[Rfam]
RNA sequence: GGGGUCGACCGGAAUUGACAGGAUGGAGAUAAGUAGGUAAGCAUGCAGCGCGUUGUGUGAAUUAGCGCUAUAAUCUGAACGCUCAAACUUACAAAUGGCGAAAAUAACUACGCCUUAGCUGCCUAAUUUAGAAUUAGAAUAGCUUUUGUCCCGCCGGUUUUCCGUUUCAUCGGACCGGCAACCGGGGCAUCGAAAGAUGAAACUGGCUUGUUUAGGGUGUGAUAAACAGGUGAGAUAAAGCACCUAAGGAAGACGGUACAGGUGAGCAACUGACCUUCCCCUUCCCUACAAUUUAACAGAGCUAAGCAUGUAGAAAGCUUACCUUAUACCAUGUUUGGACGAGGGUUCGAAUCCCUCCGGCUCCACUG
Numbered sequence: 001g002g003g004g005u006c007g008a009c010c011g012g013a014a015u016u017g018a019c020a021g022g023a024u025g026g027a028g029a030u031a032a033g034u035a036g037g038u039a040a041g042c043a044u045g046c047a048g049c050g051c052g053u054u055g056u057g058u059g060a061a062u063u064a065g066c067g068c069u070a071u072a073a074u075c076u077g078a079a080c081g082c083u084c085a086a087a088c089u090u091a092c093a094a095a096u097g098g099c100g101a102a103a104a105u106a107a108c109u110a111c112g113c114c115u116u117a118g119c120u121g122c123c124u125a126a127u128u129u130a131g132a133a134u135u136a137g138a139a140u141a142g143c144u145u146u147u148g149u150c151c152c153g154c155c156g157g158u159u160u161u162c163c164g165u166u167u168c169a170u171c172g173g174a175c176c177g178g179c180a181a182c183c184g185g186g187g188c189a190u191c192g193a194a195a196g197a198u199g200a201a202a203c204u205g206g207c208u209u210g211u212u213u214a215g216g217g218u219g220u221g222a223u224a225a226a227c228a229g230g231u232g233a234g235a236u237a238a239a240g241c242a243c244c245u246a247a248g249g250a251a252g253a254c255g256g257u258a259c260a261g262g263u264g265a266g267c268a269a270c271u272g273a274c275c276u277u278c279c280c281c282u283u284c285c286c287u288a289c290a291a292u293u294u295a296a297c298a299g300a301g302c303u304a305a306g307c308a309u310g311u312a313g314a315a316a317g318c319u320u321a322c323c324u325u326a327u328a329c330c331a332u333g334u335u336u337g338g339a340c341g342a343g344g345g346u347u348c349g350a351a352u353c354c355c356u357c358c359g360g361c362u363c364c365a366c367u368g
Base pairs, nucleotide, nucleotide: 001364002363003362004361005360006359007358019337020336021335022334023332024331025330026329030326031325032324033322034321035320036319037318038317042310043309044308045307046306047069048068049067050066051065054085055084057082058081059080147189148188149187150186151185152184153179154178155177156176157175158174159173160172165200166199170195206231207230208229209228210227211226212225213224214223216244217243218242219241220240248286249285251283252282255279256278261275262274263273264302267299271295272294341357342356343355344354345353
Overview: This 368-nucleotide RNA sequence from Mucilaginibacter limnophilus belongs to the Rfam family "transfer-messenger RNA". For this family Rfam cites "Phylogenetic analysis of tmRNA secondary structure" (Williams and Bartel, RNA, 1996). The match comes from Rfam's covariance-model search (117 bits). The family's RNA type in Rfam is non-coding RNA gene.